[Rfam]
RNA sequence: AUGCGUUGGUGGCUCUACUUCCCUCUCAGGGCGGUUGAAUGACGCACAUAAGUGAGAUCCAAAGUGCCAAUGACCCGCUCUGAAAAGCGGGUUUUUUUAU
Numbered sequence: 001a002u003g004c005g006u007u008g009g010u011g012g013c014u015c016u017a018c019u020u021c022c023c024u025c026u027c028a029g030g031g032c033g034g035u036u037g038a039a040u041g042a043c044g045c046a047c048a049u050a051a052g053u054g055a056g057a058u059c060c061a062a063a064g065u066g067c068c069a070a071u072g073a074c075c076c077g078c079u080c081u082g083a084a085a086a087g088c089g090g091g092u093u094u095u096u097u098u099a100u
Base pairs, nucleotide, nucleotide: 009043010042012040015037017035018034019033021031022030023029024028072093073092074091075090076089077088078087079085
A member of the RNA family "Tryptophan operon leader" from Xenorhabdus innexi, 100 nucleotides long. The match comes from Rfam's covariance-model search (46 bits). From the family's description: At least 6 amino acid operons are known to be regulated by attenuation. In each a leader sequence of 150-200 bp is found upstream of the first gene in the operon. This leader sequence can assume two different secondary structures known as the terminator and the anti-terminator structure.